A member of the RNA family "U8 small nucleolar RNA" from Melanocharis versteri, 134 nucleotides long. A search with the family's covariance model found it, with a score of 44 bits. Rfam classes the family as a C/D-box small nucleolar RNA. Rfam 15.1 lists 1,597 matches to the family in 457 species. On this family, see Peculis et al., Gene 2001: "The U8 snoRNA gene family: identification and characterization of distinct, functional U8 genes in Xenopus".
[Rfam]
RNA sequence: UCGUCAGUGCGGUACAUCCUGACCUGCCCCGCCUUGCGGGCAGCACGUGAUGAGCGCGCAGCGAUGACGCAGUGAUUACGUCACGCCGGCGCGCGGGCCACGCAACAAAGCCCGCGCCGCCUGGAGACUCUGAC
Number, nucleotide and partner (000 for none) at each position: 001u000002c000003g000004u000005c000006a000007g000008u000009g000010c000011g000012g000013u000014a000015c000016a000017u000018c000019c000020u000021g000022a000023c000024c043025u042026g041027c000028c040029c039030c038031g037032c036033c000034u000035u000036g032037c031038g030039g029040g028041c026042a025043g024044c000045a000046c000047g000048u000049g000050a000051u000052g000053a000054g000055c000056g000057c000058g000059c000060a000061g000062c000063g000064a000065u000066g084067a000068c000069g081070c080071a000072g000073u078074g000075a000076u000077u000078a073079c000080g070081u069082c000083a000084c066085g000086c000087c000088g120089g000090c000091g000092c116093g115094c114095g113096g112097g111098c000099c000100a000101c000102g000103c000104a000105a000106c000107a000108a000109a000110g000111c097112c096113c095114g094115c093116g092117c000118c000119g000120c088121c000122u000123g000124g000125a000126g000127a000128c000129u000130c000131u000132g000133a000134c000